Rfam assigns this 101-nucleotide sequence from Tupaia belangeri to the family "mir-4743 microRNA precursor family".
A search with the family's covariance model found it, with a score of 74 bits.
Its family is annotated with miRNA-mediated post-transcriptional gene silencing and RISC complex in the Gene Ontology.
The source organism's lineage runs through Eukaryota, Euteleostomi, Tetrapoda, Amniota and Tupaia belangeri.
[Rfam]
RNA sequence: CAUCCCUCCCCUCCUGCCCACCCGUGGGGAUGGUGUGUAUGAAUGAACCAUCCUUCCAAUGCCUUUCCGUCUUUUCUGGUCCAGGUGUGGAAAAGGGAAGC
Numbered sequence: 001c002a003u004c005c006c007u008c009c010c011c012u013c014c015u016g017c018c019c020a021c022c023c024g025u026g027g028g029g030a031u032g033g034u035g036u037g038u039a040u041g042a043a044u045g046a047a048c049c050a051u052c053c054u055u056c057c058a059a060u061g062c063c064u065u066u067c068c069g070u071c072u073u074u075u076c077u078g079g080u081c082c083a084g085g086u087g088u089g090g091a092a093a094a095g096g097g098a099a100g101c
Stems, first nucleotide, its partner, number of pairs: 003098005008090002011087001013085004020080003024076001027073007035065001037062004041056003045052002